[Rfam]
RNA sequence: GUUUGGAUGAUGACUUUGGUCGGAUACCCCUUCACUCGUUCUGAGUGAUAACUGCUGUCUGACAAAC
Numbered sequence: 001g002u003u004u005g006g007a008u009g010a011u012g013a014c015u016u017u018g019g020u021c022g023g024a025u026a027c028c029c030c031u032u033c034a035c036u037c038g039u040u041c042u043g044a045g046u047g048a049u050a051a052c053u054g055c056u057g058u059c060u061g062a063c064a065a066a067c
Stems, first nucleotide, its partner, number of pairs: 001067005
Shown here is a 67-nucleotide RNA from Bombycilla garrulus, a member of the family "Small nucleolar RNA SNORD101". Gene Ontology terms of the family: nucleolus and RNA processing. The match comes from Rfam's covariance-model search (66 bits).